Shown here is a 74-nucleotide RNA sequence from Orycteropus afer, a member of the family "U1A polyadenylation inhibition element (PIE)".
A reference for the family is Varani et al. (2000), "The NMR structure of the 38 kDa U1A protein - PIE RNA complex reveals the basis of cooperativity in regulation of polyadenylation by human U1A protein", Nat Struct Biol.
The family's consensus secondary structure is taken from published work.
It scores 63 bits against the family's covariance model.
Rfam classes the family as a cis-regulatory element.
This family represents the U1A polyadenylation inhibition element (PIE). PIE is a regulatory RNA which is responsible for the regulation of the length of the polyA tail of the U1A pre-mRNA. The PIE is located in the U1A mRNA 3' UTR. PIE adopts a U-shaped structure, with binding sites for a single U1A protein at each bend and when complexed with the two proteins it blocks activity of poly(A) polymerase (PAP), and inhibits its activity.
RNA sequence: CCGUAUAGCAUUGUACUCACAGUCUGUCCCCAGACAUUGUACCUGGCUCUGUUAGGCUGGGAUUAUAGUGAUAU
Dot-bracket structure: ....((((........(((..(((((....)))))........)))..))))......................